Bacterial small subunit ribosomal RNA: a 564-nucleotide part of an RNA from Thalassotalea sp. LPB0316. Lineage of the source: Bacteria > Pseudomonadota > Alteromonadales > Colwelliaceae > Thalassotalea. Its family is annotated with ribosome and structural constituent of ribosome in the Gene Ontology. It scores 1575 bits against the family's covariance model.
RNA sequence: UAAUUGAAGAGUUUGAUCAUGGCUCAGAUUGAACGCUGGCGGCAGGCUUAACACAUGCAAGUCGAGCGGAAACGAGAAGUGCUUGCACUUCGGCGUCGAGCGGCGGACGGGUGAGUAAUGCUUGGGAAUAUGCCUUUAGGUGGGGGACAACAGUUGGAAACGACUGCUAAUACCGCAUAAUGUCUACGGACCAAAGGAGGGGAUCUUCGGACCUUUCGCCUAGAGAUUAGCCCAAGUGAGAUUAGCUAGAUGGUGGGGUAAAGGCCUACCAUGGCGACGAUCUCUAGCUGGUUUGAGAGGAUGAUCAGCCACACUGGGACUGAGACACGGCCCAGACUCCUACGGGAGGCAGCAGUGGGGAAUAUUGCACAAUGGGGGAAACCCUGAUGCAGCCAUGCCGCGUGUGUGAAGAAGGCCUUCGGGUUGUAAAGCACUUUCAGUCGUGAGGAAAGGGUAGUCGCUAAUAUCGGCUAUCUGUGACGUUAGCGACAGAAGAAGCACCGGCUAACUCCGUGCCAGCAGCCGCGGUAAUACGGAGGGUGCGAGCGUUAAUCGGAAUUACUG
Numbered sequence: 001u002a003a004u005u006g007a008a009g010a011g012u013u014u015g016a017u018c019a020u021g022g023c024u025c026a027g028a029u030u031g032a033a034c035g036c037u038g039g040c041g042g043c044a045g046g047c048u049u050a051a052c053a054c055a056u057g058c059a060a061g062u063c064g065a066g067c068g069g070a071a072a073c074g075a076g077a078a079g080u081g082c083u084u085g086c087a088c089u090u091c092g093g094c095g096u097c098g099a100g101c102g103g104c105g106g107a108c109g110g111g112u113g114a115g116u117a118a119u120g121c122u123u124g125g126g127a128a129u130a131u132g133c134c135u136u137u138a139g140g141u142g143g144g145g146g147a148c149a150a151c152a153g154u155u156g157g158a159a160a161c162g163a164c165u166g167c168u169a170a171u172a173c174c175g176c177a178u179a180a181u182g183u184c185u186a187c188g189g190a191c192c193a194a195a196g197g198a199g200g201g202g203a204u205c206u207u208c209g210g211a212c213c214u215u216u217c218g219c220c221u222a223g224a225g226a227u228u229a230g231c232c233c234a235a236g237u238g239a240g241a242u243u244a245g246c247u248a249g250a251u252g253g254u255g256g257g258g259u260a261a262a263g264g265c266c267u268a269c270c271a272u273g274g275c276g277a278c279g280a281u282c283u284c285u286a287g288c289u290g291g292u293u294u295g296a297g298a299g300g301a302u303g304a305u306c307a308g309c310c311a312c313a314c315u316g317g318g319a320c321u322g323a324g325a326c327a328c329g330g331c332c333c334a335g336a337c338u339c340c341u342a343c344g345g346g347a348g349g350c351a352g353c354a355g356u357g358g359g360g361a362a363u364a365u366u367g368c369a370c371a372a373u374g375g376g377g378g379a380a381a382c383c384c385u386g387a388u389g390c391a392g393c394c395a396u397g398c399c400g401c402g403u404g405u406g407u408g409a410a411g412a413a414g415g416c417c418u419u420c421g422g423g424u425u426g427u428a429a430a431g432c433a434c435u436u437u438c439a440g441u442c443g444u445g446a447g448g449a450a451a452g453g454g455u456a457g458u459c460g461c462u463a464a465u466a467u468c469g470g471c472u473a474u475c476u477g478u479g480a481c482g483u484u485a486g487c488g489a490c491a492g493a494a495g496a497a498g499c500a501c502c503g504g505c506u507a508a509c510u511c512c513g514u515g516c517c518a519g520c521a522g523c524c525g526c527g528g529u530a531a532u533a534c535g536g537a538g539g540g541u542g543c544g545a546g547c548g549u550u551a552a553u554c555g556g557a558a559u560u561a562c563u564g
Stems, first nucleotide, its partner, number of pairs: 009025005027554004032550006039401006045394002047359001052357003056354003061104003066101002069097002076091006111312003120237007129229002134225007142176001144174002151166006182191003196217006238284003245275003250272008287309004291302004314335005337348004365391001367390003373386005404434004414425004438495001440490005448481001453475007498543005509538005519526002